The record is a 55-nucleotide RNA sequence from Phormidium nigroviride, which matches "Nitrogen stress-induced RNA 1" in Rfam.
The match comes from Rfam's covariance-model search (49 bits).
It is annotated as a small RNA.
The pairing is the family consensus, mapped onto this sequence.
[Rfam]
RNA sequence: UGGUAGAUGCACCCUGAUUAAAUAACUCCCGACCAAUUUUGGCCGGGUUUUUUUU
Numbered sequence: 001u002g003g004u005a006g007a008u009g010c011a012c013c014c015u016g017a018u019u020a021a022a023u024a025a026c027u028c029c030c031g032a033c034c035a036a037u038u039u040u041g042g043c044c045g046g047g048u049u050u051u052u053u054u055u
Stems, first nucleotide, its partner, number of pairs: 002013003028047004033042003